A member of the RNA family "SAM riboswitch aptamer (S box leader)" from Gracilibacillus halotolerans, 108 nucleotides long. The family's consensus secondary structure is taken from published work.
RNA sequence: AUCUUAUCAAGAGUGGUGGAGGGACUGGCCCUAUGAAACCCGGCAACCUUUAAGCAACAGCUUAAGUUGGUGCCAAUUCCAGCCUGAUUGUAUCAGGGGAGAUAAGAG
Numbered sequence: 001a002u003c004u005u006a007u008c009a010a011g012a013g014u015g016g017u018g019g020a021g022g023g024a025c026u027g028g029c030c031c032u033a034u035g036a037a038a039c040c041c042g043g044c045a046a047c048c049u050u051u052a053a054g055c056a057a058c059a060g061c062u063u064a065a066g067u068u069g070g071u072g073c074c075a076a077u078u079c080c081a082g083c084c085u086g087a088u089u090g091u092a093u094c095a096g097g098g099g100a101g102a103u104a105a106g107a108g
Base pairs, nucleotide, nucleotide: 002107003106004105005104006103007102008101013041015040016039017038021031022030023029025082026081027080028079042074043073044072045071047070048069049066050065051064052063078100083097084096085095086094087093088092